[Rfam]
RNA: PreQ1-II (pre queuosine) riboswitch aptamer
RNA sequence: UCUUUGAGUAUUAAAAAGUAGGAACAACCCUUGGCGCUUCUUCCCUUUAGCCAAGCAUAUUACAAGCGGUUUAUCCGCCAAAGGAGAAUUAUAUG
Numbered sequence: 001u002c003u004u005u006g007a008g009u010a011u012u013a014a015a016a017a018g019u020a021g022g023a024a025c026a027a028c029c030c031u032u033g034g035c036g037c038u039u040c041u042u043c044c045c046u047u048u049a050g051c052c053a054a055g056c057a058u059a060u061u062a063c064a065a066g067c068g069g070u071u072u073a074u075c076c077g078c079c080a081a082a083g084g085a086g087a088a089u090u091a092u093a094u095g
Stems, first nucleotide, its partner, number of pairs: 018028002021025001030055006042086001044084004066078004